[Rfam]
RNA sequence: CGUGGUGUCUUGAUUCAGACCUCCAGCCGAAGGAUUCGCUGGCCUGUCUUCCCCUGGGCCAGGGUAUCCGGCUGGGGAUCUGGAUCAAGAACCGUCUAGAG
Numbered sequence: 001c002g003u004g005g006u007g008u009c010u011u012g013a014u015u016c017a018g019a020c021c022u023c024c025a026g027c028c029g030a031a032g033g034a035u036u037c038g039c040u041g042g043c044c045u046g047u048c049u050u051c052c053c054c055u056g057g058g059c060c061a062g063g064g065u066a067u068c069c070g071g072c073u074g075g076g077g078a079u080c081u082g083g084a085u086c087a088a089g090a091a092c093c094g095u096c097u098a099g100a101g
Stems, first nucleotide, its partner, number of pairs: 010088007018080002021077009034067002037064001039062007
Dot-bracket structure: .........(((((((.((.(((((((((....((.(.(((((((..........))))))).).)).))))))))).)).))))))).............
RNA: mraW RNA
Organism: Auritidibacter sp. NML120636